[Rfam]
RNA: mir-486 microRNA precursor family
RNA sequence: GCAUCCUGUACUGAGCUGCCCCGAGCUGAGCACAAUGAAGGACCUCGGGGCAGCUCAGUACAGGACCC
Numbered sequence: 001g002c003a004u005c006c007u008g009u010a011c012u013g014a015g016c017u018g019c020c021c022c023g024a025g026c027u028g029a030g031c032a033c034a035a036u037g038a039a040g041g042a043c044c045u046c047g048g049g050g051c052a053g054c055u056c057a058g059u060a061c062a063g064g065a066c067c068c
Stems, first nucleotide, its partner, number of pairs: 008061011020049005025043001